[Rfam]
RNA: Small nucleolar RNA snoR26
RNA sequence: GGAGCAUGACUAUGAGUUUAUUAUAUUGUUAUCCUUGCACUUUGAUUGCCCAUGAAGAAAAUGCACGGAGAAAAUUUUCUUUCAGGUGCUC
Numbered sequence: 001g002g003a004g005c006a007u008g009a010c011u012a013u014g015a016g017u018u019u020a021u022u023a024u025a026u027u028g029u030u031a032u033c034c035u036u037g038c039a040c041u042u043u044g045a046u047u048g049c050c051c052a053u054g055a056a057g058a059a060a061a062u063g064c065a066c067g068g069a070g071a072a073a074a075u076u077u078u079c080u081u082u083c084a085g086g087u088g089c090u091c
Stems, first nucleotide, its partner, number of pairs: 002091006